[Rfam]
RNA: small nucleolar RNA snoR135
RNA sequence: UAUGCAGGGAUAGUGUGUAUCGGCGUGUGCUAAAAAAAGAUGCGCAAAGCUCGAAAGAAUUCCCAUGCUAGAACAAAAAUGAAGGGGAAGGUGGGCAGUUGUGUUUCAUUCACAUCGUUGAUUCAACAACAAUCAUUUUCCCUAUAUUC
Numbered sequence: 001u002a003u004g005c006a007g008g009g010a011u012a013g014u015g016u017g018u019a020u021c022g023g024c025g026u027g028u029g030c031u032a033a034a035a036a037a038a039g040a041u042g043c044g045c046a047a048a049g050c051u052c053g054a055a056a057g058a059a060u061u062c063c064c065a066u067g068c069u070a071g072a073a074c075a076a077a078a079a080u081g082a083a084g085g086g087g088a089a090g091g092u093g094g095g096c097a098g099u100u101g102u103g104u105u106u107c108a109u110u111c112a113c114a115u116c117g118u119u120g121a122u123u124c125a126a127c128a129a130c131a132a133u134c135a136u137u138u139u140c141c142c143u144a145u146a147u148u149c
Base pairs, nucleotide, nucleotide: 004068005067006066007064008063009062010061015045016044017043018042019041020040084143085142086141087140088139089138090137091136092135093134094133098130099129100128101127